[Rfam]
The family of this 97-nucleotide sequence is "nhaA-II RNA". It is annotated as a cis-regulatory element. It is one of the family's seed sequences.
RNA sequence: AUCAGGCCCGCUUCCGUCGUUUCCGGCGUCGGGAGGGGCCAGGCCGGCGCCGCCAUGGCGAAUCCGGUCCGGCGUCCGUCGAUAACCGGGCGCCACG
Numbered sequence: 001a002u003c004a005g006g007c008c009c010g011c012u013u014c015c016g017u018c019g020u021u022u023c024c025g026g027c028g029u030c031g032g033g034a035g036g037g038g039c040c041a042g043g044c045c046g047g048c049g050c051c052g053c054c055a056u057g058g059c060g061a062a063u064c065c066g067g068u069c070c071g072g073c074g075u076c077c078g079u080c081g082a083u084a085a086c087c088g089g090g091c092g093c094c095a096c097g
Stems, first nucleotide, its partner, number of pairs: 005040005011035006042069006048060004071094006